[Rfam]
Nucleotides: 068
Stems, first nucleotide, its partner, number of pairs: 003068004008063002011060003015056009027045004
Number, partner (000 for none) and nucleotide at each position: 001000c002000c003068c004067u005066c006065u007000u008063g009062u010000g011060c012059c013058u014000u015056c016055u017054g018053a019052a020051c021050u022049g023048a024000c025000a026000g027045c028044a029043g030042u031000u032000c033000a034000c035000u036000c037000a038000g039000c040000a041000c042030a043029c044028u045027g046000g047000c048023u049022c050021a051020g052019u053018u054017c055016a056015g057000c058013a059012g060011g061000a062009a063008c064000a065006g066005g067004a068003g
mir-24 microRNA precursor family: a 68-nucleotide sequence from Myripristis murdjan. Pairs were carried over by alignment from the consensus structure, which was predicted with RNAalifold. Taxonomically the source falls in Myripristis (Eukaryota, Deuterostomia, Euteleostomi, Holocentridae). The match comes from Rfam's covariance-model search (74 bits). This family represents the microRNA (miRNA) mir-24 family. miRNAs are transcribed as ~70nt precursors (modelled here) and subsequently processed by the Dicer enzyme to give a ~22nt product.